[Rfam]
The record is an 87-nucleotide sequence from Nicotiana tabacum, which matches "mir-160 microRNA precursor family" in Rfam.

Nucleotides: 087
Base pairs, nucleotide, nucleotide: 001087002086003085004084005083006082008080009079010078011077012076013075014074016072017071018070019069020068021067022066023065024064027061028060029059
Number, partner (000 for none) and nucleotide at each position: 001087a002086u003085a004084u005083g006082c007000c008080u009079g010078g011077c012076u013075c014074c015000c016072u017071g018070u019069a020068u021067g022066c023065c024064a025000u026000u027061u028060g029059c030000a031000g032000a033000g034000c035000u036000c037000a038000c039000c040000g041000u042000a043000a044000u045000a046000u047000c048000g049000a050000u051000g052000a053000g054000c055000c056000u057000u058000u059029g060028u061027g062000a063000a064024u065023g066022g067021c068020g069019u070018a071017u072016g073000a074014g075013g076012a077011g078010c079009c080008a081000a082006g083005c084004a085003u086002a087001u
Pairs were carried over by alignment from the consensus structure, which was predicted with PFOLD. A search with the family's covariance model found it, with a score of 76 bits. A reference for the family is Rhoades et al. (2002), "Prediction of plant microRNA targets", Cell.